[Rfam]
RNA: Streptomyces RNA 1601
Nucleotides: 222
Base pairs, nucleotide, nucleotide: 004103005102006101007100008099009098012041013040042096043095044094045093046092048074049073051071052070053069054068055066056065076090077089078088079087080086081085105142106141107140108139109138111135115130116129117128118127119126152215153214154213155212156211157210158207159206160205165203166202167201168199169198170197171196172195174193175192176191177190178189
Number, partner (000 for none) and nucleotide at each position: 001000g002000a003000c004103g005102a006101c007100c008099g009098g010000c011000c012041g013040g014000a015000c016000a017000g018000g019000u020000a021000u022000g023000c024000c025000u026000c027000a028000c029000c030000g031000c032000u033000a034000g035000c036000u037000g038000a039000a040013c041012c042096g043095g044094c045093c046092c047000a048074c049073a050000a051071g052070u053069g054068g055066a056065g057000g058000c059000u060000u061000c062000g063000a064000a065056c066055u067000c068054c069053c070052a071051c072000c073049u074048g075000a076090c077089u078088g079087c080086c081085c082000c083000a084000c085081g086080g087079g088078c089077g090076g091000c092046g093045g094044g095043u096042c097000a098009c099008c100007g101006g102005u103004c104000a105142g106141g107140c108139g109138g110000u111135c112000g113000c114000u115130u116129c117128g118127c119126c120000g121000u122000u123000c124000a125000c126119g127118g128117c129116g130115a131000u132000g133000g134000c135111g136000u137000u138109c139108c140107g141106u142105c143000c144000g145000a146000u147000u148000c149000u150000g151000c152215g153214c154213c155212c156211c157210g158207c159206g160205a161000u162000c163000c164000u165203c166202g167201c168199g169198g170197c171196g172195g173000u174193g175192u176191u177190c178189c179000g180000g181000u182000a183000g184000u185000u186000c187000g188000a189178g190177g191176a192175g193174c194000c195172c196171c197170g198169c199168c200000u201167g202166u203165g204000a205160u206159c207158g208000u209000c210157c211156g212155g213154g214153g215152c216000a217000u218000u219000u220000u221000u222000u